[Rfam]
RNA sequence: UCGGCCCCGGUUCACGUACGAGCAUCCCCGCCCGUGCGACCCGGUGCC
Numbered sequence: 001u002c003g004g005c006c007c008c009g010g011u012u013c014a015c016g017u018a019c020g021a022g023c024a025u026c027c028c029c030g031c032c033c034g035u036g037c038g039a040c041c042c043g044g045u046g047c048c
Stems, first nucleotide, its partner, number of pairs: 003048003007044004015038006022031002

Annotation:
The family of this 48-nucleotide sequence from Streptomyces pristinaespiralis is "L31-Actinobacteria ribosomal protein leader". The sequence is in the family's curated seed alignment. The family's RNA type in Rfam is cis-regulatory leader. A reference for the family is Eckert and Weinberg (2020), "Discovery of 20 novel ribosomal leader candidates in bacteria and archaea", BMC Microbiol.